[Rfam]
Shown here is a 167-nucleotide sequence from Spirochaeta africana, a member of the family "Group II catalytic intron D1-D4-3". NCBI's taxonomy places the organism under Bacteria, Spirochaetota, Spirochaetia, Spirochaeta, Spirochaeta africana. Rfam describes the family as follows. Group II introns are found in rRNA, tRNA and mRNA of organelles in fungi, plants and protists, and also in mRNA in bacteria. The base pairs follow the family's consensus structure.
RNA sequence: GGUUUCGCGAGAACCCGUCUGGAGGAAGCUGGAGCGCAAAACCGGGAGCCGAUGAACAAGAACGUGAUAUCAAGGCCUGGUUCCGGAGGCGAGGCAGCCAAUGAUGCCGAUGCCCAGUGGGAGUGGAACAGGGUAAAUCACGCGGUUGUCCGGGGACAGUGUGUAUC
Numbered sequence: 001g002g003u004u005u006c007g008c009g010a011g012a013a014c015c016c017g018u019c020u021g022g023a024g025g026a027a028g029c030u031g032g033a034g035c036g037c038a039a040a041a042c043c044g045g046g047a048g049c050c051g052a053u054g055a056a057c058a059a060g061a062a063c064g065u066g067a068u069a070u071c072a073a074g075g076c077c078u079g080g081u082u083c084c085g086g087a088g089g090c091g092a093g094g095c096a097g098c099c100a101a102u103g104a105u106g107c108c109g110a111u112g113c114c115c116a117g118u119g120g121g122a123g124u125g126g127a128a129c130a131g132g133g134u135a136a137a138u139c140a141c142g143c144g145g146u147u148g149u150c151c152g153g154g155g156a157c158a159g160u161g162u163g164u165a166u167c
Stems, first nucleotide, its partner, number of pairs: 001016002004013003028167001030165002036160002042153005047147005063142006075134003080129006088114003093108004